[Rfam]
RNA: gltS RNA
Organism: Vibrio sp. 10N.286.49.B3
RNA sequence: UAUCACUAUGGAAUGUUUUCCUCGCAAAAUUUUCCCUGCGAGAUACCGAAUGGAAUCAAAUCAAUUCAUCAUCGAAUUGAUUUAGAAUCAUAAAUAUAAAAGGACAAG
Numbered sequence: 001u002a003u004c005a006c007u008a009u010g011g012a013a014u015g016u017u018u019u020c021c022u023c024g025c026a027a028a029a030u031u032u033u034c035c036c037u038g039c040g041a042g043a044u045a046c047c048g049a050a051u052g053g054a055a056u057c058a059a060a061u062c063a064a065u066u067c068a069u070c071a072u073c074g075a076a077u078u079g080a081u082u083u084a085g086a087a088u089c090a091u092a093a094a095u096a097u098a099a100a101a102g103g104a105c106a107a108g
Stems, first nucleotide, its partner, number of pairs: 021042006060081007